[Rfam]
RNA: tRNA
Organism: Strongylocentrotus purpuratus
RNA sequence: CAAGGCAUAGCUAGUUAGUAAGUUUCUCCUUUACACGGAGACCACACUCGUGCAAUUCGAGUUGUUUUGA
Numbered sequence: 001c002a003a004g005g006c007a008u009a010g011c012u013a014g015u016u017a018g019u020a021a022g023u024u025u026c027u028c029c030u031u032u033a034c035a036c037g038g039a040g041a042c043c044a045c046a047c048u049c050g051u052g053c054a055a056u057u058c059g060a061g062u063u064g065u066u067u068u069g070a
Stems, first nucleotide, its partner, number of pairs: 001069007010023003025041005046062005